[Rfam]
Nucleotides: 084
Base pairs, nucleotide, nucleotide: 004037005036006034007033009031010030011029012028013027014026015025052073053072054071055070056069057067058066
Number, partner (000 for none) and nucleotide at each position: 001000a002000c003000c004037u005036g006034a007033g008000c009031c010030g011029g012028g013027a014026c015025g016000a017000g018000a019000g020000c021000a022000g023000g024000g025015c026014g027013u028012c029011c030010c031009g032000a033007c034006u035000c036005c037004g038000g039000a040000a041000a042000g043000a044000c045000a046000u047000a048000c049000a050000c051000c052073g053072u054071g055070c056069c057067a058066c059000g060000g061000a062000a063000u064000u065000u066058g067057u068000g069056g070055g071054c072053a073052c074000a075000u076000a077000u078000g079000g080000g081000c082000g083000u084000u